[Rfam]
RNA sequence: UUAAAGACGUAGACGGAAAUUAGUAGAAUCAAGCUGUAUAACAGAAAGAGACCGGUAGCUGAGAAGGUUUUGAUACAAAAUGAUUUGAAUUUCACUUCCUGAGUUACUGUUGGGAUUCAUUUAGAUGAAUAACAGAUCGGUUCAUGACCGUUUUAUCAUGAAAAAGUGCUGUUUUUACUGACAGAACAAGGGUGGUACCGCGAAGCCUCGUCCCUUUU
Numbered sequence: 001u002u003a004a005a006g007a008c009g010u011a012g013a014c015g016g017a018a019a020u021u022a023g024u025a026g027a028a029u030c031a032a033g034c035u036g037u038a039u040a041a042c043a044g045a046a047a048g049a050g051a052c053c054g055g056u057a058g059c060u061g062a063g064a065a066g067g068u069u070u071u072g073a074u075a076c077a078a079a080a081u082g083a084u085u086u087g088a089a090u091u092u093c094a095c096u097u098c099c100u101g102a103g104u105u106a107c108u109g110u111u112g113g114g115a116u117u118c119a120u121u122u123a124g125a126u127g128a129a130u131a132a133c134a135g136a137u138c139g140g141u142u143c144a145u146g147a148c149c150g151u152u153u154u155a156u157c158a159u160g161a162a163a164a165a166g167u168g169c170u171g172u173u174u175u176u177a178c179u180g181a182c183a184g185a186a187c188a189a190g191g192g193u194g195g196u197a198c199c200g201c202g203a204a205g206c207c208u209c210g211u212c213c214c215u216u217u218u
Base pairs, nucleotide, nucleotide: 007104008103015099016098017097018096026086027085028084029083030082031081037075038074039073048071049070050069051068052067053066107135108134109133110132111131112130138150139149140148169184170183171182172181173180189215190214191213192212200211201210202209203208
RNA: T-box leader
Organism: Ligilactobacillus apodemi